[Rfam]
RNA: SAM riboswitch aptamer (S box leader)
RNA sequence: CCCUUAUUCAGAGUGGUGGAGAUACAUAGGAUCGAGGAAGCCACGGCAACCCCGCAUACGAGAUGCGGAAGGUGCCCACCUGAGCGAGCAAUUGUCGAACAAUAAGAG
Numbered sequence: 001c002c003c004u005u006a007u008u009c010a011g012a013g014u015g016g017u018g019g020a021g022a023u024a025c026a027u028a029g030g031a032u033c034g035a036g037g038a039a040g041c042c043a044c045g046g047c048a049a050c051c052c053c054g055c056a057u058a059c060g061a062g063a064u065g066c067g068g069a070a071g072g073u074g075c076c077c078a079c080c081u082g083a084g085c086g087a088g089c090a091a092u093u094g095u096c097g098a099a100c101a102a103u104a105a106g107a108g
Stems, first nucleotide, its partner, number of pairs: 001108001003106006013044005021033003027084001030081001045076004050072002052068004085097003